[Rfam]
RNA sequence: GGUUGCAAGCUUGAGGCCAUAGCAGAAGUGCUUAUGGUACAUCCUGUCAGAUUCCAGUGAAUCUGCAAAUUAUACU
Numbered sequence: 001g002g003u004u005g006c007a008a009g010c011u012u013g014a015g016g017c018c019a020u021a022g023c024a025g026a027a028g029u030g031c032u033u034a035u036g037g038u039a040c041a042u043c044c045u046g047u048c049a050g051a052u053u054c055c056a057g058u059g060a061a062u063c064u065g066c067a068a069a070u071u072a073u074a075c076u
Base pairs, nucleotide, nucleotide: 015044016043021076022075024073026071027070028040029039030038048065049064050063051062052061053060054059

Notes:
The family of this 76-nucleotide RNA sequence from Alligator mississippiensis is "Mammalian CPEB3 ribozyme". Taxonomically the source falls in Alligator (Eukaryota, Metazoa, Eumetazoa, Tetrapoda). The mammalian CPEB3 ribozyme is a self cleaving RNA located in the second intron of the CPEB3 gene which belongs to a family of genes regulating messenger RNA polyadenylation. A search with the family's covariance model found it, with a score of 42 bits. Pairs were carried over by alignment from the consensus structure, which is taken from published work.